[Rfam]
Nucleotides: 162
Stems, first nucleotide, its partner, number of pairs: 011147004018041003042142006052064002065127003073103006106121004
Number, partner (000 for none) and nucleotide at each position: 001000g002000g003000c004000c005000g006000g007000a008000c009000g010000c011147c012146g013145c014144c015000u016000a017000g018041u019040c020039g021000u022000g023000c024000c025000c026000g027000c028000a029000g030000c031000c032000g033000c034000g035000g036000g037000g038000a039020c040019g041018a042142g043141c044140c045139g046138g047137g048000g049000a050000c051000c052064c053063a054000c055000c056000g057000c058000a059000g060000u061000c062000c063053u064052g065127g066126g067125g068000u069000g070000a071000g072000u073103c074102c075101u076100g077099c078098c079000u080000c081000c082000c083000g084000g085000u086000c087000c088000c089000g090000c091000a092000c093000c094000g095000g096000g097000c098078g099077g100076c101075a102074g103073g104000u105000a106121g107120g108119g109118c110000u111000u112000c113000u114000u115000c116000c117000c118109g119108c120107c121106c122000g123000a124000a125067c126066c127065c128000g129000u130000c131000a132000g133000c134000u135000a136000a137047c138046c139045c140044g141043g142042u143000c144014g145013g146012c147011g148000g149000c150000c151000a152000c153000g154000g155000a156000a157000g158000a159000a160000g161000g162000a